[Rfam]
RNA: Eukaryotic large subunit ribosomal RNA, nucleotides 2215 to 2751
Organism: Bilobella aurantiaca
RNA sequence: UAGAACAAUGUAGGUAAGGGAAGUCGGCAAAUCGGAUCCGUAACUUCGGGACAAGGAUUGGCUCUGAGGAUUGGGGCAGUCGGGCCGGAUCAGGAAAUGGUGUGUGCUCACGUGCUGGGCCUGGAUGAGAUUCUUCGGGAUUGAAUUCGGUCCCUUGCCGCGGCCUACUAUGGAUUGGUUCGGCUAGGAGAGCCAGUGAAAGGAAGUAAUUUUGAUUACUGGAACAACUCUCUUCGGCUUCCAUUGAACAAUCAACUCAGAACUGGCACGGACCGGGGGAAUCCGACUGUCUAAUUAAAACAAAGCAUCGCGAUGGCUCUCACGGGUGAUGACGCGAUGUGAUUUCUGCCCAGUGCUAUGAUGUCAAAGUGAAGAAAUUCAACCAAGCGCUGGUAAACGGCGGGAGUAACUAUGACUCUCUUAAGGUAGCCAAAUGCCUCGUCAUCUAAUUAGUGACGCGCAUGAAUGGAUUAACGAGAUUCCCACUGUCCCUAUCUACUAUCUAGCGAAACCACAGCUAAGGGAACGGGCUUAGAC
Numbered sequence: 001u002a003g004a005a006c007a008a009u010g011u012a013g014g015u016a017a018g019g020g021a022a023g024u025c026g027g028c029a030a031a032u033c034g035g036a037u038c039c040g041u042a043a044c045u046u047c048g049g050g051a052c053a054a055g056g057a058u059u060g061g062c063u064c065u066g067a068g069g070a071u072u073g074g075g076g077c078a079g080u081c082g083g084g085c086c087g088g089a090u091c092a093g094g095a096a097a098u099g100g101u102g103u104g105u106g107c108u109c110a111c112g113u114g115c116u117g118g119g120c121c122u123g124g125a126u127g128a129g130a131u132u133c134u135u136c137g138g139g140a141u142u143g144a145a146u147u148c149g150g151u152c153c154c155u156u157g158c159c160g161c162g163g164c165c166u167a168c169u170a171u172g173g174a175u176u177g178g179u180u181c182g183g184c185u186a187g188g189a190g191a192g193c194c195a196g197u198g199a200a201a202g203g204a205a206g207u208a209a210u211u212u213u214g215a216u217u218a219c220u221g222g223a224a225c226a227a228c229u230c231u232c233u234u235c236g237g238c239u240u241c242c243a244u245u246g247a248a249c250a251a252u253c254a255a256c257u258c259a260g261a262a263c264u265g266g267c268a269c270g271g272a273c274c275g276g277g278g279g280a281a282u283c284c285g286a287c288u289g290u291c292u293a294a295u296u297a298a299a300a301c302a303a304a305g306c307a308u309c310g311c312g313a314u315g316g317c318u319c320u321c322a323c324g325g326g327u328g329a330u331g332a333c334g335c336g337a338u339g340u341g342a343u344u345u346c347u348g349c350c351c352a353g354u355g356c357u358a359u360g361a362u363g364u365c366a367a368a369g370u371g372a373a374g375a376a377a378u379u380c381a382a383c384c385a386a387g388c389g390c391u392g393g394u395a396a397a398c399g400g401c402g403g404g405a406g407u408a409a410c411u412a413u414g415a416c417u418c419u420c421u422u423a424a425g426g427u428a429g430c431c432a433a434a435u436g437c438c439u440c441g442u443c444a445u446c447u448a449a450u451u452a453g454u455g456a457c458g459c460g461c462a463u464g465a466a467u468g469g470a471u472u473a474a475c476g477a478g479a480u481u482c483c484c485a486c487u488g489u490c491c492c493u494a495u496c497u498a499c500u501a502u503c504u505a506g507c508g509a510a511a512c513c514a515c516a517g518c519u520a521a522g523g524g525a526a527c528g529g530g531c532u533u534a535g536a537c
Stems, first nucleotide, its partner, number of pairs: 001505004010499007018491003035059005044049001060264002063261006069253005075242002078239006084184003088180004097171004106165001108163002111160002117154003121150006129142005265269001277484007284476002288302003305340008314329001316327004344470003348401003353398002355394004360390001362389003370381004402420006421425001441457005518535005